The family of this 110-nucleotide sequence from Medicago truncatula is "MIR5284 microRNA precursor family".
[Rfam]
RNA sequence: UUGUAAUUUUAGAUUCCGCCACUUUUGGUCCCUCAUUUUACGUGCCAUGUAUACAUAUUCUGCUUACGUGGUGGAAUGAGGGACUAAAAGUGGAAGAAUUGAAAUUACAG
Number, nucleotide and partner (000 for none) at each position: 001u000002u000003g000004u107005a106006a105007u104008u103009u102010u101011a100012g000013a099014u098015u097016c096017c000018g000019c093020c092021a091022c090023u089024u088025u087026u086027g085028g084029u083030c082031c081032c080033u079034c078035a077036u076037u075038u074039u073040a000041c000042g000043u000044g072045c071046c070047a069048u068049g067050u066051a000052u000053a000054c062055a061056u000057a000058u000059u000060c000061u055062g054063c000064u000065u000066a050067c049068g048069u047070g046071g045072u044073g039074g038075a037076a036077u035078g034079a033080g032081g031082g030083a029084c028085u027086a026087a025088a024089a023090g022091u021092g020093g019094a000095a000096g016097a015098a014099u013100u011101g010102a009103a008104a007105u006106u005107a004108c000109a000110g000